[Rfam]
Rfam assigns this 251-nucleotide part of an RNA from Halocatena salina to the family "Archaeal large subunit ribosomal RNA". It scores 2827 bits against the family's covariance model. The source organism's lineage runs through Archaea, Methanobacteriati, Halobacteria, Halobacteriales and Halocatena. Gene Ontology terms of the family: structural constituent of ribosome and ribosome.
RNA sequence: UGGUGUCUGAUGUGAACGGCCGUAUAGUACGAGAGGAACUACGGUUGGUCGCCACUAGUGUACCGGUUGUCCGAGAGGGCAUGUGCCGGGCAGCUACGCGACACGGGGUAAGGGCUGAAUGCAUCUAAGCCCGAAACCCACAUAGAAAAGAGACACCGCUGAGACCACUCGUAGAAGACGAGUUCGAUAGACUCGGGGUGUACGCACCGAGGCAACGAGGUGUUCAGCCCGCGAGCACUAACUGGUCGACG
Numbered sequence: 001u002g003g004u005g006u007c008u009g010a011u012g013u014g015a016a017c018g019g020c021c022g023u024a025u026a027g028u029a030c031g032a033g034a035g036g037a038a039c040u041a042c043g044g045u046u047g048g049u050c051g052c053c054a055c056u057a058g059u060g061u062a063c064c065g066g067u068u069g070u071c072c073g074a075g076a077g078g079g080c081a082u083g084u085g086c087c088g089g090g091c092a093g094c095u096a097c098g099c100g101a102c103a104c105g106g107g108g109u110a111a112g113g114g115c116u117g118a119a120u121g122c123a124u125c126u127a128a129g130c131c132c133g134a135a136a137c138c139c140a141c142a143u144a145g146a147a148a149a150g151a152g153a154c155a156c157c158g159c160u161g162a163g164a165c166c167a168c169u170c171g172u173a174g175a176a177g178a179c180g181a182g183u184u185c186g187a188u189a190g191a192c193u194c195g196g197g198g199u200g201u202a203c204g205c206a207c208c209g210a211g212g213c214a215a216c217g218a219g220g221u222g223u224u225c226a227g228c229c230c231g232c233g234a235g236c237a238c239u240a241a242c243u244g245g246u247c248g249a250c251g
Base pairs, nucleotide, nucleotide: 001158002157003156004155005154006153007152008151011144012143013142014141017047018046019045020044021043022042023041024040048102049101050100051099052098056096057095058094063089064088065087066086067085068081069080070079071078072077105139106138107137112132113131114130115129116128163247164246165245166244167183168182169181170180171179188240189239190238192235193234194233195232196230197229198228204223205222206221207220208219211216